[Rfam]
RNA sequence: AAGUCCAAGGGAGUAAGGAAGGGCAUCGCCUGCUUUCGGCGGACACGCCCUUCUGAUGGGGAAUGGGAACUGCCUUCCCCCUGCGGCUCGCCUGCAGUGCUCCUGCUAGGGCCGCGUGGGUACCCGUGGGCACCGGUGGGCACCUGGGGGCACCCGAGGCU
Numbered sequence: 001a002a003g004u005c006c007a008a009g010g011g012a013g014u015a016a017g018g019a020a021g022g023g024c025a026u027c028g029c030c031u032g033c034u035u036u037c038g039g040c041g042g043a044c045a046c047g048c049c050c051u052u053c054u055g056a057u058g059g060g061g062a063a064u065g066g067g068a069a070c071u072g073c074c075u076u077c078c079c080c081c082u083g084c085g086g087c088u089c090g091c092c093u094g095c096a097g098u099g100c101u102c103c104u105g106c107u108a109g110g111g112c113c114g115c116g117u118g119g120g121u122a123c124c125c126g127u128g129g130g131c132a133c134c135g136g137u138g139g140g141c142a143c144c145u146g147g148g149g150g151c152a153c154c155c156g157a158g159g160c161u
Stems, first nucleotide, its partner, number of pairs: 002161004009155003015051001017049002024042001027041004052147002059080001061077003065074002081140002084135003092129004097124001099123001103118001
The family of this 161-nucleotide RNA sequence from Nyctereutes procyonoides is "FGF-1 internal ribosome entry site (IRES)". NCBI's taxonomy places the organism under Eukaryota, Chordata, Craniata, Carnivora, Nyctereutes. About the family: This family represents the FGF-1 internal ribosome entry site (IRES). Rfam links the family to the GO term ribosome binding.